[Rfam]
RNA sequence: AAGGCUUAACAUGAAUGUUGAUUGUAAUCUGAUAGCUUUAAGCUAAGUUUAAUUAGUUAAUGCUGCUAUUUGUGAAGCCUAGAAUGUUGUUUCCCUUGCUAUCCAAGGCUGCAUUACAUGUUGCGUUGGACGUCGGGAAACUACUUUU
Numbered sequence: 001a002a003g004g005c006u007u008a009a010c011a012u013g014a015a016u017g018u019u020g021a022u023u024g025u026a027a028u029c030u031g032a033u034a035g036c037u038u039u040a041a042g043c044u045a046a047g048u049u050u051a052a053u054u055a056g057u058u059a060a061u062g063c064u065g066c067u068a069u070u071u072g073u074g075a076a077g078c079c080u081a082g083a084a085u086g087u088u089g090u091u092u093c094c095c096u097u098g099c100u101a102u103c104c105a106a107g108g109c110u111g112c113a114u115u116a117c118a119u120g121u122u123g124c125g126u127u128g129g130a131c132g133u134c135g136g137g138a139a140a141c142u143a144c145u146u147u148u
Stems, first nucleotide, its partner, number of pairs: 003079003009073001025068002033065004038060002042057003089141007097132002102130005111121003